[Rfam]
RNA: mir-8/mir-141/mir-200 microRNA precursor family
RNA sequence: GUCUCCAUCUUACGAGGCAGCAUUUGAUGGCAUGCUUCUCUCUAAUACUGCCUGGUAAUGAUGACGAC
Numbered sequence: 001g002u003c004u005c006c007a008u009c010u011u012a013c014g015a016g017g018c019a020g021c022a023u024u025u026g027a028u029g030g031c032a033u034g035c036u037u038c039u040c041u042c043u044a045a046u047a048c049u050g051c052c053u054g055g056u057a058a059u060g061a062u063g064a065c066g067a068c
Stems, first nucleotide, its partner, number of pairs: 002067002006063004010058004015053006022046003026042002